About this RNA
Rfam assigns this 60-nucleotide RNA sequence from Novosphingobium sp. AAP1 to the family "nhaA-I RNA". About the family: Acidobacteria, Alphaproteobacteria, Betaproteobacteria and Gammaproteobacteria, Verrucomicrobia, cand. division NC10. The base pairs follow the family's consensus structure, which is taken from published work.
RNA sequence: GGGUGCUCGCUGGCCAGAACGUGGUGCGGGCAGGCUUUUGCGCUGGUCGGGCCGCCAGCG
Numbered sequence: 001g002g003g004u005g006c007u008c009g010c011u012g013g014c015c016a017g018a019a020c021g022u023g024g025u026g027c028g029g030g031c032a033g034g035c036u037u038u039u040g041c042g043c044u045g046g047u048c049g050g051g052c053c054g055c056c057a058g059c060g
Base pairs, nucleotide, nucleotide: 005031006030007029008028009027010026041060042059043058044057045056046055047054